[Rfam]
RNA: HIF-1 alpha IRES
RNA sequence: CCUAGCGUGAGGGGACGCGAGGAUCGAGCCGCCGCCGCUUCUGCCGGUGCGUCGGGCCCUGACAAGCAGCCGCGAGAGAGGCUCUUCGGAGGCGGCCCUGCAGCCCAGCGAUUGUCGCCUGGGGUCUCACGAGGGAUUGGCCGCCGCGCACCCCAGCCCUGUCUGGACGUGCCUCCCCUUUCUCUCUCCCUCUCGCUCUCCCCUUGUGCGGAGGCAGCCAGCGGCUUUGGACGGGCGAGCCUGGGGGCCGCCGGCCACGAAGGCUUCGCCGGGACCCAUUCACCAUG
Numbered sequence: 001c002c003u004a005g006c007g008u009g010a011g012g013g014g015a016c017g018c019g020a021g022g023a024u025c026g027a028g029c030c031g032c033c034g035c036c037g038c039u040u041c042u043g044c045c046g047g048u049g050c051g052u053c054g055g056g057c058c059c060u061g062a063c064a065a066g067c068a069g070c071c072g073c074g075a076g077a078g079a080g081g082c083u084c085u086u087c088g089g090a091g092g093c094g095g096c097c098c099u100g101c102a103g104c105c106c107a108g109c110g111a112u113u114g115u116c117g118c119c120u121g122g123g124g125u126c127u128c129a130c131g132a133g134g135g136a137u138u139g140g141c142c143g144c145c146g147c148g149c150a151c152c153c154c155a156g157c158c159c160u161g162u163c164u165g166g167a168c169g170u171g172c173c174u175c176c177c178c179u180u181u182c183u184c185u186c187u188c189c190c191u192c193u194c195g196c197u198c199u200c201c202c203c204u205u206g207u208g209c210g211g212a213g214g215c216a217g218c219c220a221g222c223g224g225c226u227u228u229g230g231a232c233g234g235g236c237g238a239g240c241c242u243g244g245g246g247g248c249c250g251c252c253g254g255c256c257a258c259g260a261a262g263g264c265u266u267c268g269c270c271g272g273g274a275c276c277c278a279u280u281c282a283c284c285a286u287g
Base pairs, nucleotide, nucleotide: 001014002013003012017032018031019030021029034057035056036055080142081141082140084139124137125136126135127134128133170220171219173217174216176214183212184211185210232253233252235251236250237249